[Rfam]
Overview: Shown here is a 90-nucleotide RNA from Guptibacillus hwajinpoensis, a member of the family "c-di-GMP-I riboswitch aptamer". NCBI's taxonomy places the organism under Bacteria, Bacillati, Bacillota, Bacilli, Guptibacillus. On this family, see Weinberg et al., Nucleic Acids Res 2007: "Identification of 22 candidate structured RNAs in bacteria using the CMfinder comparative genomics pipeline". The family's consensus secondary structure is taken from published work.
RNA sequence: GUACGAGAAUGGCAAAAUCAUUGAAAAGUGAUGACGCAAAGCUAAAGGGACUUAGCGGACCGAAAGACCGAAAGUCAGCCAGUUGCCGAA
Numbered sequence: 001g002u003a004c005g006a007g008a009a010u011g012g013c014a015a016a017a018u019c020a021u022u023g024a025a026a027a028g029u030g031a032u033g034a035c036g037c038a039a040a041g042c043u044a045a046a047g048g049g050a051c052u053u054a055g056c057g058g059a060c061c062g063a064a065a066g067a068c069c070g071a072a073a074g075u076c077a078g079c080c081a082g083u084u085g086c087c088g089a090a
Stems, first nucleotide, its partner, number of pairs: 012037002017032006040084004047080002049076003056070003